Shown here is a 71-nucleotide sequence, a member of the family "Small nucleolar RNA SNORD58". On this family, see Kiss-Laszlo et al., Cell 1996: "Site-specific ribose methylation of preribosomal RNA: a novel function for small nucleolar RNAs". snoRNA U58 is found in introns 1, 3 and 6 of the ribosomal protein RPL17 gene in humans. Rfam 15.1 lists 2,484 matches to the family in 680 species. Rfam classes the family as a C/D-box small nucleolar RNA. Gene Ontology terms of the family: RNA processing and nucleolus.
RNA sequence: GUACAGUGAUGACAUUCUUAGGACACCUUUGGAGGUUAUGACUAAUGAAAAGAAAACAUGUUCUGAGUACU
Numbered sequence: 001g002u003a004c005a006g007u008g009a010u011g012a013c014a015u016u017c018u019u020a021g022g023a024c025a026c027c028u029u030u031g032g033a034g035g036u037u038a039u040g041a042c043u044a045a046u047g048a049a050a051a052g053a054a055a056a057c058a059u060g061u062u063c064u065g066a067g068u069a070c071u
Base pairs, nucleotide, nucleotide: 001070002069003068004067